[Rfam]
The record is an 86-nucleotide sequence from Trichechus manatus, which matches "mir-544 microRNA precursor family" in Rfam. For this family Rfam cites "Mammalian microRNAs: experimental evaluation of novel and previously annotated genes" (Chiang et al., Genes Dev, 2010). The family's consensus secondary structure was predicted with RNAalifold.

RNA sequence: AUCACCGGGGAAUCUUGUUAAAAAUGCAGAUUCCUCUUUAGUAGGUCUUGAGUCUGCCUUUCUAACAAGCUCCCAGGUGAUGCCAA
Numbered sequence: 001a002u003c004a005c006c007g008g009g010g011a012a013u014c015u016u017g018u019u020a021a022a023a024a025u026g027c028a029g030a031u032u033c034c035u036c037u038u039u040a041g042u043a044g045g046u047c048u049u050g051a052g053u054c055u056g057c058c059u060u061u062c063u064a065a066c067a068a069g070c071u072c073c074c075a076g077g078u079g080a081u082g083c084c085a086a
Stems, first nucleotide, its partner, number of pairs: 003079003009073003014069007022061003026057005032051002